Source information:
The family of this 81-nucleotide sequence from Ancylobacter tetraedralis is "Makes More Granules Regulator RNA (mmgR)". Rfam links the family to the GO terms protein binding, DNA-templated transcription, termination and response to nitrogen compound. Pairs were carried over by alignment from the consensus structure. Taxonomically the source falls in Ancylobacter (Bacteria, Pseudomonadati, Alphaproteobacteria, Xanthobacteraceae).
[Rfam]
Nucleotides: 081
Stems, first nucleotide, its partner, number of pairs: 008020004038066009
Number, partner (000 for none) and nucleotide at each position: 001000c002000c003000g004000u005000a006000c007000a008020g009019c010018c011017c012000u013000c014000c015000u016000u017011g018010g019009g020008c021000g022000u023000u024000u025000c026000c027000u028000c029000c030000c031000u032000a033000g034000a035000c036000u037000u038066g039065g040064g041063c042062c043061g044060c045059u046058c047000c048000c049000g050000c051000c052000u053000u054000g055000c056000g057000u058046g059045a060044g061043c062042g063041g064040c065039c066038u067000c068000u069000u070000u071000c072000u073000u074000u075000u076000g077000u078000a079000u080000c081000g